[Rfam]
RNA sequence: CCGACGGUUUCUCCCGUCGUAGCCUAGGAGCACAUGCGAGACUGGUAACGGUCCGGUGUGAAGCUGCUCUGACAAUGUACUCCGCCCGAAAGGGUAAGACGAGCCCGUGAGGGCGACCAACACUGCAAGCAUCAUGCGGUAGGAGGC
Numbered sequence: 001c002c003g004a005c006g007g008u009u010u011c012u013c014c015c016g017u018c019g020u021a022g023c024c025u026a027g028g029a030g031c032a033c034a035u036g037c038g039a040g041a042c043u044g045g046u047a048a049c050g051g052u053c054c055g056g057u058g059u060g061a062a063g064c065u066g067c068u069c070u071g072a073c074a075a076u077g078u079a080c081u082c083c084g085c086c087c088g089a090a091a092g093g094g095u096a097a098g099a100c101g102a103g104c105c106c107g108u109g110a111g112g113g114c115g116a117c118c119a120a121c122a123c124u125g126c127a128a129g130c131a132u133c134a135u136g137c138g139g140u141a142g143g144a145g146g147c
Stems, first nucleotide, its partner, number of pairs: 002019006028069005033060005040053005084095004098117001100115002105112002122140006